The family of this 144-nucleotide sequence from Mycoplana azooxidifex is "Alphaproteobacterial sRNA ar35". NCBI's taxonomy places the organism under Bacteria, Pseudomonadati, Alphaproteobacteria, Rhizobiaceae, Mycoplana. The family's RNA type in Rfam is small RNA. On this family, see del Val et al., RNA Biol 2012: "A survey of sRNA families in alpha-proteobacteria".
[Rfam]
RNA sequence: AUCGGCAUUGCUGAUGAGCGCUGAGACAAAUUCGGCGCUCGCAACUGCCGCGUCGCUUCAAACUUUUGACCACGGAUGUACUGGCACGGGUGAUUGGGCGAUGAUGAGGAAGGUCGGUGCGGUUUCGCCCCGGCCUUUUUUGUU
Number, nucleotide and partner (000 for none) at each position: 001a000002u000003c050004g049005g048006c047007a000008u044009u043010g000011c000012u000013g000014a000015u000016g040017a039018g038019c037020g036021c000022u000023g000024a000025g000026a000027c000028a000029a000030a000031u000032u000033c000034g000035g000036c020037g019038c018039u017040c016041g000042c000043a009044a008045c000046u000047g006048c005049c004050g003051c000052g102053u101054c100055g099056c098057u097058u096059c000060a000061a000062a091063c090064u089065u000066u000067u086068g085069a000070c084071c083072a082073c000074g000075g000076a000077u000078g000079u000080a000081c000082u072083g071084g070085c068086a067087c000088g000089g064090g063091u062092g000093a000094u000095u000096g058097g057098g056099c055100g054101a053102u052103g000104a143105u142106g141107a140108g139109g138110a137111a136112g135113g134114u133115c132116g131117g130118u000119g128120c127121g126122g000123u000124u000125u000126c121127g120128c119129c000130c117131c116132g115133g114134c113135c112136u111137u110138u109139u108140u107141u106142g105143u104144u000